[Rfam]
RNA: Group II catalytic intron D1-D4-4
Organism: Anaerocolumna cellulosilytica
RNA sequence: UUACCGGUGAAAGUCCGGUCAAGGUAAUUGCCAGUGAGCCUUGUAGCAAGCCUCCAGUGCUCUUGGGUGACUGACUGUGCUGAAGCGAGGUAUGCCUAUGUGAAAUAGGUGCAAAUUAACAGUCUGUAACAUUA
Numbered sequence: 001u002u003a004c005c006g007g008u009g010a011a012a013g014u015c016c017g018g019u020c021a022a023g024g025u026a027a028u029u030g031c032c033a034g035u036g037a038g039c040c041u042u043g044u045a046g047c048a049a050g051c052c053u054c055c056a057g058u059g060c061u062c063u064u065g066g067g068u069g070a071c072u073g074a075c076u077g078u079g080c081u082g083a084a085g086c087g088a089g090g091u092a093u094g095c096c097u098a099u100g101u102g103a104a105a106u107a108g109g110u111g112c113a114a115a116u117u118a119a120c121a122g123u124c125u126g127u128a129a130c131a132u133u134a
Stems, first nucleotide, its partner, number of pairs: 020043005050091005055082006064073001066071001094110006111127003